[Rfam]
Rfam assigns this 47-nucleotide sequence from Lucilia cuprina to the family "Pseudoknot of upstream pseudoknot domain (UPD) of the 3'UTR". NCBI's taxonomy places the organism under Eukaryota, Metazoa, Pancrustacea, Insecta, Lucilia. The family's consensus secondary structure is taken from published work. The match comes from Rfam's covariance-model search (34 bits). Rfam classes the family as a cis-regulatory element.
RNA sequence: AGUGUUUUUCCUUGCUCUUGCACUGAAUUCCACUUAAAUCGAAAGCA
Numbered sequence: 001a002g003u004g005u006u007u008u009u010c011c012u013u014g015c016u017c018u019u020g021c022a023c024u025g026a027a028u029u030c031c032a033c034u035u036a037a038a039u040c041g042a043a044a045g046c047a
Stems, first nucleotide, its partner, number of pairs: 001034004009047001011045003